Shown here is a 624-nucleotide RNA sequence from Trypanosoma conorhini, a member of the family "Trypanosomatid mitochondrial small subunit ribosomal RNA". On this family, see Sharma et al., Proc Natl Acad Sci U S A 2009: "Structure of a mitochondrial ribosome with minimal RNA". Gene Ontology terms of the family: ribosome and structural constituent of ribosome. Lineage of the source: Eukaryota > Discoba > Euglenozoa > Trypanosomatidae > Trypanosoma.

RNA sequence: AAGUUUUAAAGUCUAUUGUUAUUAUUCAUAUUAAUUUUUUUAAAAGUUUUUAAAUUUUAUAUUAGUUUAUUUAUUAUAAAAAAUUUAUGUCACAUUUUAGGAAUAGAUAAUAAUAAUUUAUAAUUUUGAUUAGAUAUUUUUGUUAAUGCUAUACAAUGGGUGUGGAAAUAUUUGUAAAAUUAAUAAAACAAACAAAUAAUAAAUAAAAUAUUACUCAUUAGUCAGAAAUGGAUGCCAGCCGUUGCGGUAAUUUCUAUGCUUUUAAAUAUUAUACAUUUAUCAAAAAACAUUGUUAUUUUUCGAUUUAACCAAUAAAAAAUUUAGCUAAUAUUUUUUGUUUUUAAACACCAUUAAGGUAUAUGCAAAUAAAAAAUUAUAGUAAUUAUAUAUUAUAUUAUAUUAUAUUUAUUCAAAUACUUUUAAUAAAAGCAUUCAUUAUAUUUGACACCAUGAUAAGGCUAAUUAUUUGGAAUUGUAAAUUUUAUAAUCAAAAUUUAUAAUUUAUAUAAAAAUUUUAAAAUUAGAUAAAACAAAAAAUUCAAAAGGUAUUGUUGCCCACCAAUUUUUAUAAUAAAAAUAACGUGCAGUAAUUAAUAUAUUUAUAAAGAUAUAUUUUCAGUAAAU
Numbered sequence: 001a002a003g004u005u006u007u008a009a010a011g012u013c014u015a016u017u018g019u020u021a022u023u024a025u026u027c028a029u030a031u032u033a034a035u036u037u038u039u040u041u042a043a044a045a046g047u048u049u050u051u052a053a054a055u056u057u058u059a060u061a062u063u064a065g066u067u068u069a070u071u072u073a074u075u076a077u078a079a080a081a082a083a084u085u086u087a088u089g090u091c092a093c094a095u096u097u098u099a100g101g102a103a104u105a106g107a108u109a110a111u112a113a114u115a116a117u118u119u120a121u122a123a124u125u126u127u128g129a130u131u132a133g134a135u136a137u138u139u140u141u142g143u144u145a146a147u148g149c150u151a152u153a154c155a156a157u158g159g160g161u162g163u164g165g166a167a168a169u170a171u172u173u174g175u176a177a178a179a180u181u182a183a184u185a186a187a188a189c190a191a192a193c194a195a196a197u198a199a200u201a202a203a204u205a206a207a208a209u210a211u212u213a214c215u216c217a218u219u220a221g222u223c224a225g226a227a228a229u230g231g232a233u234g235c236c237a238g239c240c241g242u243u244g245c246g247g248u249a250a251u252u253u254c255u256a257u258g259c260u261u262u263u264a265a266a267u268a269u270u271a272u273a274c275a276u277u278u279a280u281c282a283a284a285a286a287a288c289a290u291u292g293u294u295a296u297u298u299u300u301c302g303a304u305u306u307a308a309c310c311a312a313u314a315a316a317a318a319a320u321u322u323a324g325c326u327a328a329u330a331u332u333u334u335u336u337g338u339u340u341u342u343a344a345a346c347a348c349c350a351u352u353a354a355g356g357u358a359u360a361u362g363c364a365a366a367u368a369a370a371a372a373a374u375u376a377u378a379g380u381a382a383u384u385a386u387a388u389a390u391u392a393u394a395u396u397a398u399a400u401u402a403u404a405u406u407u408a409u410u411c412a413a414a415u416a417c418u419u420u421u422a423a424u425a426a427a428a429g430c431a432u433u434c435a436u437u438a439u440a441u442u443u444g445a446c447a448c449c450a451u452g453a454u455a456a457g458g459c460u461a462a463u464u465a466u467u468u469g470g471a472a473u474u475g476u477a478a479a480u481u482u483u484a485u486a487a488u489c490a491a492a493a494u495u496u497a498u499a500a501u502u503u504a505u506a507u508a509a510a511a512a513u514u515u516u517a518a519a520a521u522u523a524g525a526u527a528a529a530a531c532a533a534a535a536a537a538u539u540c541a542a543a544a545g546g547u548a549u550u551g552u553u554g555c556c557c558a559c560c561a562a563u564u565u566u567u568a569u570a571a572u573a574a575a576a577a578u579a580a581c582g583u584g585c586a587g588u589a590a591u592u593a594a595u596a597u598a599u600u601u602a603u604a605a606a607g608a609u610a611u612a613u614u615u616u617c618a619g620u621a622a623a624u
Stems, first nucleotide, its partner, number of pairs: 015588004036080003040076001042074001044072004051065001053063003101411006108402005113393005119387007129377002132374001135370001137368001139366005146359005159349005166342003170338002183296004188291001199280006215265001217263001220260003224255006233249004238245002311335002314332002317329001431538003436533002439530001441528002447522001451517002458489001460487001462485002465482001498511001501508001545556004557584003562578007593614009